[Rfam]
RNA: MIR2629 microRNA precursor family
RNA sequence: AAGGAAAUCCUCGGCAGUUAACUGCAGCCGGUUUCCACAAACUUCGGCAGUUAACUACCGAGGGGCAU
Numbered sequence: 001a002a003g004g005a006a007a008u009c010c011u012c013g014g015c016a017g018u019u020a021a022c023u024g025c026a027g028c029c030g031g032u033u034u035c036c037a038c039a040a041a042c043u044u045c046g047g048c049a050g051u052u053a054a055c056u057a058c059c060g061a062g063g064g065g066c067a068u
Base pairs, nucleotide, nucleotide: 008064009063011061012060013059014058016056017055018054019053020052021051022050023049024048025047